[Rfam]
RNA sequence: AAGGCCGAAACCGAAAAGCCUGAAUAGAGUAGGUG
Numbered sequence: 001a002a003g004g005c006c007g008a009a010a011c012c013g014a015a016a017a018g019c020c021u022g023a024a025u026a027g028a029g030u031a032g033g034u035g
Stems, first nucleotide, its partner, number of pairs: 002021004010034003

Overview: This 35-nucleotide RNA sequence from Daejeonella lutea belongs to the Rfam family "DUF805b RNA". Rfam classes the family as a cis-regulatory element. Lineage of the source: Bacteria > Bacteroidota > Sphingobacteriia > Sphingobacteriaceae > Daejeonella. A search with the family's covariance model found it, with a score of 44 bits.